[Rfam]
RNA sequence: AUUGAUGUGGUGAUGAGGCUUAUGUGGACUAGAGUUUCUGAAUCCCUGGGGGUUUAAUUUCCUAGGUUCUGAAGACAACCCCUUGGCUAUCUGAACAUUAUU
Numbered sequence: 001a002u003u004g005a006u007g008u009g010g011u012g013a014u015g016a017g018g019c020u021u022a023u024g025u026g027g028a029c030u031a032g033a034g035u036u037u038c039u040g041a042a043u044c045c046c047u048g049g050g051g052g053u054u055u056a057a058u059u060u061c062c063u064a065g066g067u068u069c070u071g072a073a074g075a076c077a078a079c080c081c082c083u084u085g086g087c088u089a090u091c092u093g094a095a096c097a098u099u100a101u102u
Base pairs, nucleotide, nucleotide: 001102003100004099005098006097007096008095035074036073037072038071042067043066044065
This 102-nucleotide RNA from Apium graveolens belongs to the Rfam family "Small nucleolar RNA Z157/R69/R10". A reference for the family is Chen et al. (2003), "The high diversity of snoRNAs in plants: identification and comparative study of 120 snoRNA genes from Oryza sativa", Nucleic Acids Res. Rfam classes the family as a C/D-box small nucleolar RNA. Its family is annotated with nucleolus and RNA processing in the Gene Ontology. The base pairs follow the family's consensus structure, which was predicted with PFOLD. It scores 56 bits against the family's covariance model. NCBI's taxonomy places the organism under Eukaryota, Mesangiospermae, eudicotyledons, Gunneridae, Apium.